[Rfam]
RNA sequence: GUAAAACGAGGUGGAAAGGGCGACCAUACACCUAACGCAUAUUCUUAGAAAUAUGGGGGUCAGAGAGAUGAAAGACAUGCCCGACUUUCCGUUUUAC
Numbered sequence: 001g002u003a004a005a006a007c008g009a010g011g012u013g014g015a016a017a018g019g020g021c022g023a024c025c026a027u028a029c030a031c032c033u034a035a036c037g038c039a040u041a042u043u044c045u046u047a048g049a050a051a052u053a054u055g056g057g058g059g060u061c062a063g064a065g066a067g068a069u070g071a072a073a074g075a076c077a078u079g080c081c082c083g084a085c086u087u088u089c090c091g092u093u094u095u096a097c
Base pairs, nucleotide, nucleotide: 001097002096003095004094005093006092007091008090011027012026013025014024018082019081020080021079022078029065030060031059032058033057070089071088072087073086074085
RNA: skipping-rope RNA